[Rfam]
RNA sequence: GUUCCGCCCUAGCAGCACGUAAAUAUUGGCGUGUAAAAGAAACCUUCAACCCCAAUAUUAUUGUGCUGCUUCAGCGUGGC
Numbered sequence: 001g002u003u004c005c006g007c008c009c010u011a012g013c014a015g016c017a018c019g020u021a022a023a024u025a026u027u028g029g030c031g032u033g034u035a036a037a038a039g040a041a042a043c044c045u046u047c048a049a050c051c052c053c054a055a056u057a058u059u060a061u062u063g064u065g066c067u068g069c070u071u072c073a074g075c076g077u078g079g080c
Stems, first nucleotide, its partner, number of pairs: 001080003005076003010073001011070008020060001022059008
The family of this 80-nucleotide sequence from Cyanistes caeruleus is "mir-16 microRNA precursor family". Pairs were carried over by alignment from the consensus structure, which was predicted with PFOLD. A search with the family's covariance model found it, with a score of 77 bits. NCBI's taxonomy places the organism under Eukaryota, Vertebrata, Euteleostomi, Dinosauria, Cyanistes.